Annotation:
This 78-nucleotide sequence from Struthio camelus belongs to the Rfam family "Small nucleolar RNA SNORD69". From the family's description: snoRNA HBII-210 belongs to the C/D family of snoRNAs. It is the human orthologue of the mouse MBII-210 and is predicted to guide the 2'O-ribose methylation of large 28S rRNA on residue G4464. It scores 57 bits against the family's covariance model. By type it is a C/D-box small nucleolar RNA. A reference for the family is Huttenhofer et al. (2001), "RNomics: an experimental approach that identifies 201 candidates for novel, small, non-messenger RNAs in mouse", EMBO J. Its family is annotated with RNA processing and nucleolus in the Gene Ontology. Lineage of the source: Eukaryota > Opisthokonta > Euteleostomi > Coelurosauria > Struthio camelus.
RNA sequence: UGCACAAAGCAUAUGAUGAGAAAGCACUAAAACUGACUCUGUGUGGAGCAUAUUCAAUCCAACACUGAGCUUUGUGUC
Numbered sequence: 001u002g003c004a005c006a007a008a009g010c011a012u013a014u015g016a017u018g019a020g021a022a023a024g025c026a027c028u029a030a031a032a033c034u035g036a037c038u039c040u041g042u043g044u045g046g047a048g049c050a051u052a053u054u055c056a057a058u059c060c061a062a063c064a065c066u067g068a069g070c071u072u073u074g075u076g077u078c
Stems, first nucleotide, its partner, number of pairs: 002077009